[Rfam]
RNA sequence: UCGGAAGUUCCCUAGGGUUCCGCGGCAAGUCGCCAAGCAGGCGGCGGGCCGGGCCGGUCCGAGAGGGAACGCGCGGUCUCAUAAGGGACGCGUACACGGAGGGAUAGAAGCCCGGGAGUA
Numbered sequence: 001u002c003g004g005a006a007g008u009u010c011c012c013u014a015g016g017g018u019u020c021c022g023c024g025g026c027a028a029g030u031c032g033c034c035a036a037g038c039a040g041g042c043g044g045c046g047g048g049c050c051g052g053g054c055c056g057g058u059c060c061g062a063g064a065g066g067g068a069a070c071g072c073g074c075g076g077u078c079u080c081a082u083a084a085g086g087g088a089c090g091c092g093u094a095c096a097c098g099g100a101g102g103g104a105u106a107g108a109a110g111c112c113c114g115g116g117a118g119u120a
Stems, first nucleotide, its partner, number of pairs: 007070006015060002020057002022054001023051004071093005077087002095115001097118001101113003
RNA: Guanidine-I riboswitch aptamer